[Rfam]
The record is a 174-nucleotide RNA sequence from Polycladomyces abyssicola, which matches "M-box riboswitch aptamer (ykoK leader)" in Rfam. Lineage of the source: Bacteria > Bacillati > Bacillota > Caryophanales > Polycladomyces. The pairing is the family consensus, mapped onto this sequence. On this family, see Barrick et al., Proc Natl Acad Sci U S A 2004: "New RNA motifs suggest an expanded scope for riboswitches in bacterial genetic control". M-box riboswitch, also know as ykoK leader is described as a metaloregulatory RNA that sense divalent metals and function as a genetic control element of genes related to divalent metal transport in bacteria. It was first reported upstream of the B.subtilis ykoK gene and genes with related functions in other bacteria.

RNA sequence: GGACUCCUCUGUUAGGUGAGGCUCCUAUACGGAGACAGGCUACUGCCCAAAAAUGUCGAGAGACGCCAAUGGGUCAACAAAAAAGAUCGGAUUAAGGUCUUUUUUAAUGUAGCUGGGAGGCAUCACUGGCCGACCUAUGCCGUAUAGUGCUAAAACUCAACGAGGGAGUGGUUG
Numbered sequence: 001g002g003a004c005u006c007c008u009c010u011g012u013u014a015g016g017u018g019a020g021g022c023u024c025c026u027a028u029a030c031g032g033a034g035a036c037a038g039g040c041u042a043c044u045g046c047c048c049a050a051a052a053a054u055g056u057c058g059a060g061a062g063a064c065g066c067c068a069a070u071g072g073g074u075c076a077a078c079a080a081a082a083a084a085g086a087u088c089g090g091a092u093u094a095a096g097g098u099c100u101u102u103u104u105u106a107a108u109g110u111a112g113c114u115g116g117g118a119g120g121c122a123u124c125a126c127u128g129g130c131c132g133a134c135c136u137a138u139g140c141c142g143u144a145u146a147g148u149g150c151u152a153a154a155a156c157u158c159a160a161c162g163a164g165g166g167a168g169u170g171g172u173u174g
Base pairs, nucleotide, nucleotide: 006171007170009168010167011161012160013095015157016156017155020151021150022149025147026146027145028144029143030142031141032140039113040112041111042110043109045074046073047072048071049070054065055064056063057062080104081103082102083101086098087097088096115135116134